A member of the RNA family "ROOL RNA" from Streptococcus phage PH15, 567 nucleotides long. Rfam describes the family as follows. Firmicutes, Fusobacteria (1 example), Tenericutes (1 example). It scores 350 bits against the family's covariance model. Rfam classes the family as a small RNA.

[Rfam]
RNA sequence: GAUUUUAAACAAUCUACUAGAUAACCAAGUGCAGAGAGGGUGAUACCUCGCUUGGAUUGUGUACAUAAUUCCCGUUGCGCUUGUUGCGAGAUAUUGCAGGAAGAUAAGCAACUCUCUUCUGGGCGAUCGGAAGAGGUCAUGACGUGAAAGAAGAUUGAGGGUGUACAUAGUAUGGAGAUUGUGCGUAGUUAGACCAUUAUCAUACGGUGGCGGUGACAAUAGACGCUCUCUGUGAGAGAAUAAUCUGGCAAGGCCUUAUGUAGCAGUAAGAACCAAACCAGAAAUGCUAAAAUAAACCGUUUUGCACUUGAGGCCGAGCAAUCGGCCGAUAACGCCAAAGAUAAGUACAAGUAGCCCAAAUUGUGCAUAAAAAUCACAAGAUAUAUUCUGCUAAAAUAUUAAUCUGAAUGUCGGGUGAAAGUUGGACGUAACCAGUCGUGCCUAGCCAUUAAAACGCUACGGAAGUUAUAGGGUCGCUCCUUAUGGCUCAGACCGUGGUAGGCUAUCGGUCAAUAAAUUGCGUACAAUCGAAGUAGAGCGAAGGCUCAUUUGAUAGAUUGUUUAAAG
Numbered sequence: 001g002a003u004u005u006u007a008a009a010c011a012a013u014c015u016a017c018u019a020g021a022u023a024a025c026c027a028a029g030u031g032c033a034g035a036g037a038g039g040g041u042g043a044u045a046c047c048u049c050g051c052u053u054g055g056a057u058u059g060u061g062u063a064c065a066u067a068a069u070u071c072c073c074g075u076u077g078c079g080c081u082u083g084u085u086g087c088g089a090g091a092u093a094u095u096g097c098a099g100g101a102a103g104a105u106a107a108g109c110a111a112c113u114c115u116c117u118u119c120u121g122g123g124c125g126a127u128c129g130g131a132a133g134a135g136g137u138c139a140u141g142a143c144g145u146g147a148a149a150g151a152a153g154a155u156u157g158a159g160g161g162u163g164u165a166c167a168u169a170g171u172a173u174g175g176a177g178a179u180u181g182u183g184c185g186u187a188g189u190u191a192g193a194c195c196a197u198u199a200u201c202a203u204a205c206g207g208u209g210g211c212g213g214u215g216a217c218a219a220u221a222g223a224c225g226c227u228c229u230c231u232g233u234g235a236g237a238g239a240a241u242a243a244u245c246u247g248g249c250a251a252g253g254c255c256u257u258a259u260g261u262a263g264c265a266g267u268a269a270g271a272a273c274c275a276a277a278c279c280a281g282a283a284a285u286g287c288u289a290a291a292a293u294a295a296a297c298c299g300u301u302u303u304g305c306a307c308u309u310g311a312g313g314c315c316g317a318g319c320a321a322u323c324g325g326c327c328g329a330u331a332a333c334g335c336c337a338a339a340g341a342u343a344a345g346u347a348c349a350a351g352u353a354g355c356c357c358a359a360a361u362u363g364u365g366c367a368u369a370a371a372a373a374u375c376a377c378a379a380g381a382u383a384u385a386u387u388c389u390g391c392u393a394a395a396a397u398a399u400u401a402a403u404c405u406g407a408a409u410g411u412c413g414g415g416u417g418a419a420a421g422u423u424g425g426a427c428g429u430a431a432c433c434a435g436u437c438g439u440g441c442c443u444a445g446c447c448a449u450u451a452a453a454a455c456g457c458u459a460c461g462g463a464a465g466u467u468a469u470a471g472g473g474u475c476g477c478u479c480c481u482u483a484u485g486g487c488u489c490a491g492a493c494c495g496u497g498g499u500a501g502g503c504u505a506u507c508g509g510u511c512a513a514u515a516a517a518u519u520g521c522g523u524a525c526a527a528u529c530g531a532a533g534u535a536g537a538g539c540g541a542a543g544g545c546u547c548a549u550u551u552g553a554u555a556g557a558u559u560g561u562u563u564a565a566a567g
Base pairs, nucleotide, nucleotide: 008563009562012559015556018553020551021550025055026054027053028052029051036049037048038047039046058169059168060167061166062165063164074112075111076110077109078108080103081102082101084099085098086097087096088095089094113136114135115134116133117132118131119130120129121128122127138146139145140144177528179526188519190517195509197344198343199342200341203339206336207335208334209333210300211299212298213297214296226238227237228236229235244282245281246280247279248278252274253273255270256269257268261289262288263287264286303365304364305363306362313326314325315324316323317322348421354416355415356414357413359411403492404491405490406489425441443505444504445503455502458498462494465488467485468484469483470482471481472480473479536547537546538545539544